A member of the RNA family "mir-515 microRNA precursor family" from Pongo pygmaeus, 92 nucleotides long. The family has 181 seed sequences and 1,056 matches in Rfam 15.1. The organism belongs to Pongo, within Eukaryota. Its family is annotated with RISC complex and miRNA-mediated post-transcriptional gene silencing in the Gene Ontology. Pairs were carried over by alignment from the consensus structure, which was predicted with RNAalifold. Clan: mir-290 clan. For this family Rfam cites "Identification of hundreds of conserved and nonconserved human microRNAs" (Bentwich et al., Nat Genet, 2005).

RNA sequence: UCUCAUGAGUGUGACCAUCUGGAGGUAAGAAGCACUUUUUGUUUUGUGAAAGAAAAGAAAGUGCUUCCUUUCAGAGGGAUUACUCUUUGAGA
Numbered sequence: 001u002c003u004c005a006u007g008a009g010u011g012u013g014a015c016c017a018u019c020u021g022g023a024g025g026u027a028a029g030a031a032g033c034a035c036u037u038u039u040u041g042u043u044u045u046g047u048g049a050a051a052g053a054a055a056a057g058a059a060a061g062u063g064c065u066u067c068c069u070u071u072c073a074g075a076g077g078g079a080u081u082a083c084u085c086u087u088u089g090a091g092a
Base pairs, nucleotide, nucleotide: 001092002091003090004089005088007086011083012082013081014080018075019074021072022071023070024069025068029067030066031065032064033063034062035061036060037059038058039057042056043055